[Rfam]
RNA sequence: CGGCGAGGACGACCUCGCGGCACGCAUGCCGACAUCGCUUCAAGGGGACGACCCCG
Dot-bracket structure: (.((((((....)))))).).......................((((....)))).
Description: A member of the RNA family "Guanidine-II riboswitch aptamer (mini-ykkC)" from Prosthecodimorpha hirschii, 56 nucleotides long. NCBI's taxonomy places the organism under Bacteria, Pseudomonadati, Hyphomicrobiales, Ancalomicrobiaceae, Prosthecodimorpha. Simpler in structure and has fewer highly conserved nucleotide positions than the ykkC-yxkD leader. Despite this each of its two stem-loop structures directly bind free guanidine. Therefore, mini-ykkC RNA motif represents a distinct class of guanidine-sensing RNAs. Its crystal structure was also determined.